[Rfam]
RNA sequence: GGGAUGUGAUGAGUGGUCAUCGCUCGCUAAAAGUCUGCGAGAUGGGUGUCCGCCCCAAAGCCUGGUUACGACAAUCUGGGCACUCCCAUCUUUACCGAUCUGAUCCC
Numbered sequence: 001g002g003g004a005u006g007u008g009a010u011g012a013g014u015g016g017u018c019a020u021c022g023c024u025c026g027c028u029a030a031a032a033g034u035c036u037g038c039g040a041g042a043u044g045g046g047u048g049u050c051c052g053c054c055c056c057a058a059a060g061c062c063u064g065g066u067u068a069c070g071a072c073a074a075u076c077u078g079g080g081c082a083c084u085c086c087c088a089u090c091u092u093u094a095c096c097g098a099u100c101u102g103a104u105c106c107c
Stems, first nucleotide, its partner, number of pairs: 001107004014097004023041005044085007062078001065075002
RNA: Small nucleolar RNA Z279/snoR105/snoR108